[Rfam]
RNA sequence: GGAUUCGCUUUUAGUGAAGCAACUGGAUUAAGCAAAUAGUUCAGUAUAAAAAGGGUGAAUUGCGAGAAGUACUUCGUUAAGUGGAAGUUAACUCGCAGCGAAACUUAAUCAUAUGUAAAUAUAUUUAAAGAUUAAGCACGUUCAACGACUAACAGAUGAGUCACAUAACCAUAAUUCUGUCUAGAGUGCCCUACAUUUUAAUUUUAAGGUUUUUCCUUAAAUAAAAUGCAAGAUAUAGUCUGAUCAAGAAAGUGAUUUCUUG
Numbered sequence: 001g002g003a004u005u006c007g008c009u010u011u012u013a014g015u016g017a018a019g020c021a022a023c024u025g026g027a028u029u030a031a032g033c034a035a036a037u038a039g040u041u042c043a044g045u046a047u048a049a050a051a052a053g054g055g056u057g058a059a060u061u062g063c064g065a066g067a068a069g070u071a072c073u074u075c076g077u078u079a080a081g082u083g084g085a086a087g088u089u090a091a092c093u094c095g096c097a098g099c100g101a102a103a104c105u106u107a108a109u110c111a112u113a114u115g116u117a118a119a120u121a122u123a124u125u126u127a128a129a130g131a132u133u134a135a136g137c138a139c140g141u142u143c144a145a146c147g148a149c150u151a152a153c154a155g156a157u158g159a160g161u162c163a164c165a166u167a168a169c170c171a172u173a174a175u176u177c178u179g180u181c182u183a184g185a186g187u188g189c190c191c192u193a194c195a196u197u198u199u200a201a202u203u204u205u206a207a208g209g210u211u212u213u214u215c216c217u218u219a220a221a222u223a224a225a226a227u228g229c230a231a232g233a234u235a236u237a238g239u240c241u242g243a244u245c246a247a248g249a250a251a252g253u254g255a256u257u258u259c260u261u262g
Stems, first nucleotide, its partner, number of pairs: 001024002004018006052192003056188002061097006071088005098141002104136004112129001114127002145241001147240005196226005202220002247260005